[Rfam]
Rfam assigns this 114-nucleotide RNA from Papio anubis to the family "Y RNA". For this family Rfam cites "Conserved features of Y RNAs: a comparison of experimentally derived secondary structures" (Teunissen et al., Nucleic Acids Res, 2000). Lineage of the source: Eukaryota > Gnathostomata > Euarchontoglires > Primates > Papio.

RNA sequence: GACUGGUCCAAAGGUAGUGAGUUCUCUCAACUGAUUGUUCACAGUCACUUGCAGGUCAAGCUCCUUGUUCUAUUCUUUCCCCGCUGUCUCACUACUGCACUUAACUAGUCUUAA
Numbered sequence: 001g002a003c004u005g006g007u008c009c010a011a012a013g014g015u016a017g018u019g020a021g022u023u024c025u026c027u028c029a030a031c032u033g034a035u036u037g038u039u040c041a042c043a044g045u046c047a048c049u050u051g052c053a054g055g056u057c058a059a060g061c062u063c064c065u066u067g068u069u070c071u072a073u074u075c076u077u078u079c080c081c082c083g084c085u086g087u088c089u090c091a092c093u094a095c096u097g098c099a100c101u102u103a104a105c106u107a108g109u110c111u112u113a114a
Base pairs, nucleotide, nucleotide: 001110002109003108004107005106006105007104010102011101014098015097016093017092018091019090020089021088044074047071
The family's consensus secondary structure is taken from published work.